Description
Rfam assigns this 104-nucleotide RNA to the family "RT-5 RNA". The base pairs follow the family's consensus structure, which is taken from published work. By type it is a small RNA.
RNA sequence: ACGCACCUGCAGAGGGUGCAGCCGGCUCCAUAAAAAGAUCGUGCAGGUGAUCGGAGUCUGUAUCACCCGGUAAUCAAAGUAUCUACUUUGAUUUUAAGUUUUUC
Numbered sequence: 001a002c003g004c005a006c007c008u009g010c011a012g013a014g015g016g017u018g019c020a021g022c023c024g025g026c027u028c029c030a031u032a033a034a035a036a037g038a039u040c041g042u043g044c045a046g047g048u049g050a051u052c053g054g055a056g057u058c059u060g061u062a063u064c065a066c067c068c069g070g071u072a073a074u075c076a077a078a079g080u081a082u083c084u085a086c087u088u089u090g091a092u093u094u095u096a097a098g099u100u101u102u103u104c
Stems, first nucleotide, its partner, number of pairs: 005048007014068002017065002021061002024058005037052004075090006